[Rfam]
RNA sequence: ACGAAGGCGAUAAAAAAGAAGAGUACGACACUCACGCAUUUUCAGAGAGUUUACGGUCGGUGCGAGUAAACAAUGCAAGUGACGGAAUGGACUUUUUUGCCGAAAAGGUGACAUGUAGCCUUUUCCGCUUCACUUCACGUUACGAAGUCGAGUGGCUCGUCAUGAGCAAUUCGGGUGGUACCACGGCUUACAUCAGUCGUCCCUUUU
Numbered sequence: 001a002c003g004a005a006g007g008c009g010a011u012a013a014a015a016a017a018g019a020a021g022a023g024u025a026c027g028a029c030a031c032u033c034a035c036g037c038a039u040u041u042u043c044a045g046a047g048a049g050u051u052u053a054c055g056g057u058c059g060g061u062g063c064g065a066g067u068a069a070a071c072a073a074u075g076c077a078a079g080u081g082a083c084g085g086a087a088u089g090g091a092c093u094u095u096u097u098u099g100c101c102g103a104a105a106a107g108g109u110g111a112c113a114u115g116u117a118g119c120c121u122u123u124u125c126c127g128c129u130u131c132a133c134u135u136c137a138c139g140u141u142a143c144g145a146a147g148u149c150g151a152g153u154g155g156c157u158c159g160u161c162a163u164g165a166g167c168a169a170u171u172c173g174g175g176u177g178g179u180a181c182c183a184c185g186g187c188u189u190a191c192a193u194c195a196g197u198c199g200u201c202c203c204u205u206u207u
Stems, first nucleotide, its partner, number of pairs: 007100002015095004026084002029081003038074003049071006103124007126139002155167005173203003183200005
RNA: T-box leader